[Rfam]
RNA: Bacterial small subunit ribosomal RNA, nucleotides 1 to 560
RNA sequence: AGAAAGAAGAGUUUGAUCCUGGCUCAGGAUGAACGCUAGCGGCAGGCCUCAUACAUGCAAGUCGAGGGGCAGCGGGGCACUUCGGUGCUGCCGGCGACCGGCGGACGGGUGCGUAAUGCGUAUGCAAUCUACCUUACACUGGGGUAUAGCUUCCGGAAACGGGAAUUAAUCCCCCAUAUUAUCUUCUCAGCGCAUGCUGGUAAGAUGAAAGCUCCGGCGGUGUAAGAUGAGCAUGCGUCCUAUUAGCUAGUUGGUAGGGUAACGGCCUACCAAGGCAAAGAUGGGUAGGGGUUCUUAGUGGAAGGUCCCCCACACUGGCACUGAGAUACGGGCCAGACUCCUACGGGAGGCAGCAGUAGGGAAUAUUGGUCAAUGGGCGCAAGCCUGAACCAGCCAUGCCGCGUGCAGGACGAAGGCUUUCUGAGUUGUAAACUGCUUUUGUACAGGAACAAAAAAGCCUCUGCGGAGGUUCUUGAGGGUACUGUAAGAAUAAGCACCGGCUAAUUCCGUGCCAGCAGCCGCGGUAAGACGGAAGGUGCAAGCGUUAUCCGGUUUUAUUG
Numbered sequence: 001a002g003a004a005a006g007a008a009g010a011g012u013u014u015g016a017u018c019c020u021g022g023c024u025c026a027g028g029a030u031g032a033a034c035g036c037u038a039g040c041g042g043c044a045g046g047c048c049u050c051a052u053a054c055a056u057g058c059a060a061g062u063c064g065a066g067g068g069g070c071a072g073c074g075g076g077g078c079a080c081u082u083c084g085g086u087g088c089u090g091c092c093g094g095c096g097a098c099c100g101g102c103g104g105a106c107g108g109g110u111g112c113g114u115a116a117u118g119c120g121u122a123u124g125c126a127a128u129c130u131a132c133c134u135u136a137c138a139c140u141g142g143g144g145u146a147u148a149g150c151u152u153c154c155g156g157a158a159a160c161g162g163g164a165a166u167u168a169a170u171c172c173c174c175c176a177u178a179u180u181a182u183c184u185u186c187u188c189a190g191c192g193c194a195u196g197c198u199g200g201u202a203a204g205a206u207g208a209a210a211g212c213u214c215c216g217g218c219g220g221u222g223u224a225a226g227a228u229g230a231g232c233a234u235g236c237g238u239c240c241u242a243u244u245a246g247c248u249a250g251u252u253g254g255u256a257g258g259g260u261a262a263c264g265g266c267c268u269a270c271c272a273a274g275g276c277a278a279a280g281a282u283g284g285g286u287a288g289g290g291g292u293u294c295u296u297a298g299u300g301g302a303a304g305g306u307c308c309c310c311c312a313c314a315c316u317g318g319c320a321c322u323g324a325g326a327u328a329c330g331g332g333c334c335a336g337a338c339u340c341c342u343a344c345g346g347g348a349g350g351c352a353g354c355a356g357u358a359g360g361g362a363a364u365a366u367u368g369g370u371c372a373a374u375g376g377g378c379g380c381a382a383g384c385c386u387g388a389a390c391c392a393g394c395c396a397u398g399c400c401g402c403g404u405g406c407a408g409g410a411c412g413a414a415g416g417c418u419u420u421c422u423g424a425g426u427u428g429u430a431a432a433c434u435g436c437u438u439u440u441g442u443a444c445a446g447g448a449a450c451a452a453a454a455a456a457g458c459c460u461c462u463g464c465g466g467a468g469g470u471u472c473u474u475g476a477g478g479g480u481a482c483u484g485u486a487a488g489a490a491u492a493a494g495c496a497c498c499g500g501c502u503a504a505u506u507c508c509g510u511g512c513c514a515g516c517a518g519c520c521g522c523g524g525u526a527a528g529a530c531g532g533a534a535g536g537u538g539c540a541a542g543c544g545u546u547a548u549c550c551g552g553u554u555u556u557a558u559u560g
Base pairs, nucleotide, nucleotide: 009025010024011023012022013021027550028549029548030547032546033545034544035543036542037541039402040401041400042399043398044397045395046394047360052358053357054356056355057354058353061102062101063100066099067098069095070094074091076089077088078087079086080085109313110312111311118238119237120236121235122234123233124232125231128230129229133226134225135224136223137222138221139220141175142174143173144172149166151164152163153162154161155160181206182205183204184203185202187200189198190197191196211218212217239285240284241283246276247275248274251273252272253271254270255269256268257267258266288310289309290308291307292303293302294301295300315336316335317334318333319332338349339348340347341346366392368391369390370389374387375386376385377384378383405436406435407434408433415427416426417425418424442486443485444484445483446482450477456471457470458469494539495538496537497536498535505534506533507532508531509530515522516521